[Rfam]
Nucleotides: 070
Stems, first nucleotide, its partner, number of pairs: 003068004009062007019052003024048001027046005
Number, partner (000 for none) and nucleotide at each position: 001000g002000c003068u004067a005066c006065g007000c008000c009062c010061g011060g012059a013058c014057g015056a016000a017000c018000u019052u020051c021050u022000c023000a024048g025000u026000u027046c028045g029044a030043c031042c032000g033000g034000a035000a036000u037000a038000c039000a040000c041000a042031g043030g044029u045028c046027g047000g048024u049000g050021g051020g052019a053000u054000c055000u056015u057014c058013g059012u060011c061010c062009g063000u064000u065006u066005g067004u068003a069000u070000c

Source information: The family of this 70-nucleotide sequence from Operophtera brumata is "mir-278 microRNA precursor family". Pairs were carried over by alignment from the consensus structure, which was predicted with RNAalifold. On this family, see Stark et al., Genome Res 2007: "Systematic discovery and characterization of fly microRNAs using 12 Drosophila genomes". Gene Ontology terms of the family: miRNA-mediated post-transcriptional gene silencing and RISC complex.